Notes
The record is a 76-nucleotide RNA sequence from Geomonas silvestris, which matches "c-di-GMP-I riboswitch aptamer" in Rfam. GEMM was predicted in a large-scale screen for bacterial structured RNA regulatory elements. The source organism's lineage runs through Bacteria, Desulfuromonadia, Geobacterales, Geobacteraceae and Geomonas.
[Rfam]
RNA sequence: AGACGACAAUACUAAACCAUCCGCGAGGGUGGGACGGAAAGCCUAAGGGUCUCUUCGAGAUAGCCGGGUCGCCGAA
Numbered sequence: 001a002g003a004c005g006a007c008a009a010u011a012c013u014a015a016a017c018c019a020u021c022c023g024c025g026a027g028g029g030u031g032g033g034a035c036g037g038a039a040a041g042c043c044u045a046a047g048g049g050u051c052u053c054u055u056c057g058a059g060a061u062a063g064c065c066g067g068g069u070c071g072c073c074g075a076a
Base pairs, nucleotide, nucleotide: 012037013036017032018031019030020029021028022027041069042068043067047065048064049061050060051059052058053057